The record is a 97-nucleotide RNA sequence from Streptacidiphilus pinicola, which matches "che1 RNA" in Rfam.

[Rfam]
RNA sequence: AGGACAGGGGGGUCUCCGUCCAACGGAUGGAGCCUGUACUCGCAACGGGCGUGCCCCUCGGCACGCACGAGUGGUUGUCGCUCGGGGGUGCUCUCAC
Numbered sequence: 001a002g003g004a005c006a007g008g009g010g011g012g013u014c015u016c017c018g019u020c021c022a023a024c025g026g027a028u029g030g031a032g033c034c035u036g037u038a039c040u041c042g043c044a045a046c047g048g049g050c051g052u053g054c055c056c057c058u059c060g061g062c063a064c065g066c067a068c069g070a071g072u073g074g075u076u077g078u079c080g081c082u083c084g085g086g087g088g089u090g091c092u093c094u095c096a097c
Base pairs, nucleotide, nucleotide: 001040002039004037005036006035007034008033014032015031016030017029018028019027020026047068049066050065051064052063053062054061